[Rfam]
Bacterial RNase P class A: a 304-nucleotide RNA from Sulfuriferula sp. AH1.
It is annotated as a ribozyme.
The match comes from Rfam's covariance-model search (266 bits).
RNA sequence: GAAGCUGAUCAGGCAAUCGCUGCCUUGAGUAAUCAGGGGAGAGGAAAGUCCGGGCUCCAUAGAGCAGGAUGCCGGUUAACGGCCGGCCGCCGUGAGGCGAGGAACAGGGCCACAGAGACGAGUAUGCCGGCUUUCGGGCCGGCGGAUGUGAAACGCGGUAACCUCCAUCCGGAGCAAGGCCAAAUAGGCAGACGAUGAAGCGGCUCGCUGAGUCUGCGGGUAGGCUGCUUGAGCGUCUGGGCAACCAGGCGCCUAGAGGAAUGAUUGCCCACGACAAAACCCGGCUUAUCGAUCAGCUUCACCC
Numbered sequence: 001g002a003a004g005c006u007g008a009u010c011a012g013g014c015a016a017u018c019g020c021u022g023c024c025u026u027g028a029g030u031a032a033u034c035a036g037g038g039g040a041g042a043g044g045a046a047a048g049u050c051c052g053g054g055c056u057c058c059a060u061a062g063a064g065c066a067g068g069a070u071g072c073c074g075g076u077u078a079a080c081g082g083c084c085g086g087c088c089g090c091c092g093u094g095a096g097g098c099g100a101g102g103a104a105c106a107g108g109g110c111c112a113c114a115g116a117g118a119c120g121a122g123u124a125u126g127c128c129g130g131c132u133u134u135c136g137g138g139c140c141g142g143c144g145g146a147u148g149u150g151a152a153a154c155g156c157g158g159u160a161a162c163c164u165c166c167a168u169c170c171g172g173a174g175c176a177a178g179g180c181c182a183a184a185u186a187g188g189c190a191g192a193c194g195a196u197g198a199a200g201c202g203g204c205u206c207g208c209u210g211a212g213u214c215u216g217c218g219g220g221u222a223g224g225c226u227g228c229u230u231g232a233g234c235g236u237c238u239g240g241g242c243a244a245c246c247a248g249g250c251g252c253c254u255a256g257a258g259g260a261a262u263g264a265u266u267g268c269c270c271a272c273g274a275c276a277a278a279a280c281c282c283g284g285c286u287u288a289u290c291g292a293u294c295a296g297c298u299u300c301a302c303c304c
Stems, first nucleotide, its partner, number of pairs: 001300010011289001012269007020041002023038006046287003050284005055174004062206004067170005072086005087101001088099004102165002107163002109159003124147002126143007178226004188217006199209003233252008